[Rfam]
RNA: Small nucleolar RNA snoR104
RNA sequence: GGGGACCAUCCCGAAGCUAAGUUGGUGCCUGAUUCAAUCUUCCUAUAAAAACCUCUGUAAAUUCCAACUUGUAGUUCUGAAGCAAAGUCUGCAAGUCUCAACUUACUGAACAUUUGC
Number, nucleotide and partner (000 for none) at each position: 001g030002g029003g028004g000005a026006c025007c024008a023009u000010c021011c000012c000013g000014a000015a000016g000017c000018u000019a000020a000021g010022u000023u008024g007025g006026u005027g000028c003029c002030u001031g000032a000033u000034u000035c000036a000037a000038u000039c000040u000041u000042c000043c000044u000045a000046u000047a000048a000049a000050a000051a000052c000053c000054u110055c000056u108057g000058u000059a000060a000061a000062u000063u000064c000065c000066a000067a096068c095069u094070u093071g092072u091073a090074g089075u000076u087077c000078u085079g000080a000081a000082g000083c000084a000085a078086a000087g076088u000089c074090u073091g072092c071093a070094a069095g068096u067097c000098u000099c000100a000101a000102c000103u000104u000105a000106c000107u000108g056109a000110a054111c000112a000113u000114u000115u000116g000117c000